[Rfam]
RNA sequence: GCCUGCGAUGAUAUCUCCAAGUUUAUGACUUGUAGAUAUCUUCAAGUCCCUGUUUUGCAGGGGGAAGCUGCUUGGAGCUGCUACAUUCAAAUGACACCAAAGGACUUUUCUGAGUC
Numbered sequence: 001g002c003c004u005g006c007g008a009u010g011a012u013a014u015c016u017c018c019a020a021g022u023u024u025a026u027g028a029c030u031u032g033u034a035g036a037u038a039u040c041u042u043c044a045a046g047u048c049c050c051u052g053u054u055u056u057g058c059a060g061g062g063g064g065a066a067g068c069u070g071c072u073u074g075g076a077g078c079u080g081c082u083a084c085a086u087u088c089a090a091a092u093g094a095c096a097c098c099a100a101a102g103g104a105c106u107u108u109u110c111u112g113a114g115u116c
Stems, first nucleotide, its partner, number of pairs: 001116001003114001048062005
RNA: Small nucleolar RNA Z278
Organism: Phoenix dactylifera